[Rfam]
Rfam assigns this 85-nucleotide RNA sequence from Camphora micrantha to the family "Small nucleolar RNA Z221/R21b". For this family Rfam cites "The high diversity of snoRNAs in plants: identification and comparative study of 120 snoRNA genes from Oryza sativa" (Chen et al., Nucleic Acids Res, 2003). The family's consensus secondary structure was predicted with WAR. Gene Ontology terms of the family: RNA processing and nucleolus.
RNA sequence: AGGCUGUGAUGAUGAAUAAGUCAUGCACCACUCUGAUGCAUCCAAGUGCUGAUAAUAUGACUCUACCCAAACUCUGUCUGAGCCU
Numbered sequence: 001a002g003g004c005u006g007u008g009a010u011g012a013u014g015a016a017u018a019a020g021u022c023a024u025g026c027a028c029c030a031c032u033c034u035g036a037u038g039c040a041u042c043c044a045a046g047u048g049c050u051g052a053u054a055a056u057a058u059g060a061c062u063c064u065a066c067c068c069a070a071a072c073u074c075u076g077u078c079u080g081a082g083c084c085u
Base pairs, nucleotide, nucleotide: 001085002084003083004082